A member of the RNA family "Histone 3' UTR stem-loop", 45 nucleotides long. Pairs were carried over by alignment from the consensus structure, which is taken from published work. The mRNAs of metazoan histone genes lack a poly-A tail. 3' end processing occurs at a site between a highly conserved stem-loop (modelled by this family) and a purine rich region around 20 nts downstream (the histone downstream element, or HDE). The stem-loop is bound by a 31 kDa stem-loop binding protein (SLBP - also termed the histone hairpin binding protein, or HBP). Together with U7 snRNA binding of the HDE, SLBP binding nucleate s the formation of the processing complex. Rfam 15.1 lists 44,596 matches to the family in 976 species.

RNA sequence: CCAACGGCCCUCUUUAGGGCCACAAAUAUUCAAAAUCCAUGUUUG
Numbered sequence: 001c002c003a004a005c006g007g008c009c010c011u012c013u014u015u016a017g018g019g020c021c022a023c024a025a026a027u028a029u030u031c032a033a034a035a036u037c038c039a040u041g042u043u044u045g
Stems, first nucleotide, its partner, number of pairs: 006021006